[Rfam]
RNA sequence: AGAUAAAAAGGAAAUGGUGCUCUUCCUUAACCAACCGCAUUAUAAAUGCUGAUGACGCCUGAUUAAUU
Numbered sequence: 001a002g003a004u005a006a007a008a009a010g011g012a013a014a015u016g017g018u019g020c021u022c023u024u025c026c027u028u029a030a031c032c033a034a035c036c037g038c039a040u041u042a043u044a045a046a047u048g049c050u051g052a053u054g055a056c057g058c059c060u061g062a063u064u065a066a067u068u
Base pairs, nucleotide, nucleotide: 010026011025012024013023016059017058018057019056021054037049038048039047040046
RNA: Fluoride riboswitch aptamer (crcB RNA motif)